This 139-nucleotide RNA from Crotophaga sulcirostris belongs to the Rfam family "Small nucleolar RNA SNORA5". NCBI's taxonomy places the organism under Eukaryota, Deuterostomia, Neoaves, Otidimorphae, Crotophaga. ACA5 is a member of the H/ACA class of snoRNA that guide the sites of modification of uridines to pseudouridines. Its Rfam clan is "SNORA5 clan".
RNA sequence: UGCAGCCCUGUCAAAUUCGAUCCCUGCCUCCUCCGUGGUGGGGACCGGCCAUCCGGCUGCUACAGCACCUUCUGUGGUCAUGAGCCCCCCGUCCCCUUCCCAUGGGACUAGGGGGGAGAAAAACACACCAUGGACAUGU
Number, nucleotide and partner (000 for none) at each position: 001u000002g060003c059004a058005g057006c000007c000008c000009u000010g000011u000012c000013a000014a000015a000016u000017u000018c047019g046020a000021u044022c043023c042024c041025u040026g039027c038028c037029u000030c000031c000032u000033c000034c000035g000036u000037g028038g027039u026040g025041g024042g023043g022044a021045c000046c019047g018048g000049c000050c000051a000052u000053c000054c000055g000056g000057c005058u004059g003060c002061u000062a000063c000064a000065g000066c000067a000068c000069c000070u000071u000072c000073u000074g131075u130076g129077g128078u125079c000080a000081u000082g000083a000084g000085c116086c115087c114088c000089c113090c112091g000092u000093c000094c000095c000096c000097u000098u000099c000100c000101c000102a000103u000104g000105g000106g000107a000108c000109u000110a000111g000112g090113g089114g087115g086116g085117a000118g000119a000120a000121a000122a000123a000124c000125a078126c000127a000128c077129c076130a075131u074132g000133g000134a000135c000136a000137u000138g000139u000